The family of this 128-nucleotide sequence from Arabis alpina is "mir-399 microRNA precursor family". For this family Rfam cites "Computational Identification of Plant MicroRNAs and Their Targets, Including a Stress-Induced miRNA" (Jones-Rhoades and Bartel, Mol Cell, 2004). Pairs were carried over by alignment from the consensus structure, which was predicted with PFOLD. Rfam links the family to the GO terms RISC complex and miRNA-mediated post-transcriptional gene silencing. The family has 13 seed sequences and 2,396 matches in Rfam 15.1.
[Rfam]
RNA sequence: GGAUGAAUUGUGGGGCAAAUCUCCUUUGGCAGUAAAACUUUCUUCAUACAUCUCAACCAUUAUGUAUAUAUAAAUAUAGAUGUAGCGAAAACUAUCUGCCAAUGGAGUAUUUGCCCUAUAAUCCAACC
Numbered sequence: 001g002g003a004u005g006a007a008u009u010g011u012g013g014g015g016c017a018a019a020u021c022u023c024c025u026u027u028g029g030c031a032g033u034a035a036a037a038c039u040u041u042c043u044u045c046a047u048a049c050a051u052c053u054c055a056a057c058c059a060u061u062a063u064g065u066a067u068a069u070a071u072a073a074a075u076a077u078a079g080a081u082g083u084a085g086c087g088a089a090a091a092c093u094a095u096c097u098g099c100c101a102a103u104g105g106a107g108u109a110u111u112u113g114c115c116c117u118a119u120a121a122u123c124c125a126a127c128c
Stems, first nucleotide, its partner, number of pairs: 005124001007122003011118009021107004027101006035093001